A member of the RNA family "Eukaryotic small subunit ribosomal RNA" from Guillardia theta, 162 nucleotides of a longer RNA.
RNA sequence: CCGCCCGUCGCUCCUACCGAUUGAAUGGUCCGGUGAAAUCUUCGGAUUGCUGGCCAUUUGCCGCAAGGUGAGUGGUUGCGAGAAGUUGAUUGAACCUUAUCAUUUAGAGGAAGGAGAAGUCGUAACAAGGUUUCCGUAGGUGAACCUGCGGAAGGAUCAUUG
Numbered sequence: 001c002c003g004c005c006c007g008u009c010g011c012u013c014c015u016a017c018c019g020a021u022u023g024a025a026u027g028g029u030c031c032g033g034u035g036a037a038a039u040c041u042u043c044g045g046a047u048u049g050c051u052g053g054c055c056a057u058u059u060g061c062c063g064c065a066a067g068g069u070g071a072g073u074g075g076u077u078g079c080g081a082g083a084a085g086u087u088g089a090u091u092g093a094a095c096c097u098u099a100u101c102a103u104u105u106a107g108a109g110g111a112a113g114g115a116g117a118a119g120u121c122g123u124a125a126c127a128a129g130g131u132u133u134c135c136g137u138a139g140g141u142g143a144a145c146c147u148g149c150g151g152a153a154g155g156a157u158c159a160u161u162g
Base pairs, nucleotide, nucleotide: 001129003126006122007121009119011116012115013114014113015112017110018109021106023105024104025103026102027101028100029099032096033095034094037091038090039089040088043085047081048080049079050078052076054075055074056073057072058071059070060069061068062067131154132153133152134151135150136149137148138147139146140145

Gene Ontology terms of the family: structural constituent of ribosome and ribosome. The match comes from Rfam's covariance-model search (1760 bits). Lineage of the source: Eukaryota > Cryptophyceae > Geminigeraceae > Guillardia > Guillardia theta.